[Rfam]
RNA: Iron response element I
RNA sequence: GGUUCCUGCUUCAACAGUGCUUGGACGGAACU
Numbered sequence: 001g002g003u004u005c006c007u008g009c010u011u012c013a014a015c016a017g018u019g020c021u022u023g024g025a026c027g028g029a030a031c032u
Stems, first nucleotide, its partner, number of pairs: 001032006008026001010025005015019001